[Rfam]
Annotation:
Rfam assigns this 67-nucleotide RNA sequence to the family "Pistol ribozyme". The family's consensus secondary structure is taken from published work.

RNA sequence: ACACGUUGCAACGUGUAUAAAUAGCCCUUUAGGUUGCAAGCGUCCCGCCCAUGUGGCGGGGGUAGGG
Numbered sequence: 001a002c003a004c005g006u007u008g009c010a011a012c013g014u015g016u017a018u019a020a021a022u023a024g025c026c027c028u029u030u031a032g033g034u035u036g037c038a039a040g041c042g043u044c045c046c047g048c049c050c051a052u053g054u055g056g057c058g059g060g061g062g063u064a065g066g067g
Base pairs, nucleotide, nucleotide: 001016002015003014004013006039007038008037009036010035011034025067026066027065028064033041043061044060045059046058047057048056049055
Dot-bracket structure: [[[[.((((((.]]]]........[[[[....[)))))).].(((((((.....)))))))..]]]]